This 85-nucleotide sequence from Fusibacter sp. A1 belongs to the Rfam family "c-di-GMP-I riboswitch aptamer". Lineage of the source: Bacteria > Bacillati > Bacillota > Fusibacteraceae > Fusibacter. The base pairs follow the family's consensus structure, which is taken from published work.

RNA sequence: AAUGAAUAUUGGCAAAUCAACUGAAAGGUUGAGACGCAAAGCCGUGGGUCUAAGGUGUAAAAGCUAUGAUUGCCAGGUUGCCGUU
Numbered sequence: 001a002a003u004g005a006a007u008a009u010u011g012g013c014a015a016a017u018c019a020a021c022u023g024a025a026a027g028g029u030u031g032a033g034a035c036g037c038a039a040a041g042c043c044g045u046g047g048g049u050c051u052a053a054g055g056u057g058u059a060a061a062a063g064c065u066a067u068g069a070u071u072g073c074c075a076g077g078u079u080g081c082c083g084u085u
Base pairs, nucleotide, nucleotide: 012037013036017032018031019030020029021028022027040079041078042077043076045075046074047073048070049069050068055064056063

Rfam describes the family as follows. GEMM was predicted in a large-scale screen for bacterial structured RNA regulatory elements. It scores 76 bits against the family's covariance model.